[Rfam]
Shown here is a 128-nucleotide RNA sequence from Microcebus murinus, a member of the family "Small nucleolar RNA SNORA25". From the family's description: ACA25 is a member of the H/ACA class of snoRNA that guide the sites of modification of uridines to pseudouridines.
RNA sequence: UGAUCAUUUCUAAGAAGGCUCAUGGAGUUAUGAAACCAAGAGCUCUUAACGCUGUGACCAAAUAUUGAAGUUCUCUAUAGAAUGAUAUAACACUAAAUAGUGCAAUGUUUUCCUGGAGAGGUACGAGA
Numbered sequence: 001u002g003a004u005c006a007u008u009u010c011u012a013a014g015a016a017g018g019c020u021c022a023u024g025g026a027g028u029u030a031u032g033a034a035a036c037c038a039a040g041a042g043c044u045c046u047u048a049a050c051g052c053u054g055u056g057a058c059c060a061a062a063u064a065u066u067g068a069a070g071u072u073c074u075c076u077a078u079a080g081a082a083u084g085a086u087a088u089a090a091c092a093c094u095a096a097a098u099a100g101u102g103c104a105a106u107g108u109u110u111u112c113c114u115g116g117a118g119a120g121g122u123a124c125g126a127g128a
Stems, first nucleotide, its partner, number of pairs: 002059001004057004014047002017044005023039001027036001072121005079114002082111001087106002091102004

It scores 117 bits against the family's covariance model.
The organism belongs to Microcebus, within Eukaryota.
Rfam 15.1 lists 1,129 matches to the family in 449 species.
By type it is an H/ACA-box small nucleolar RNA.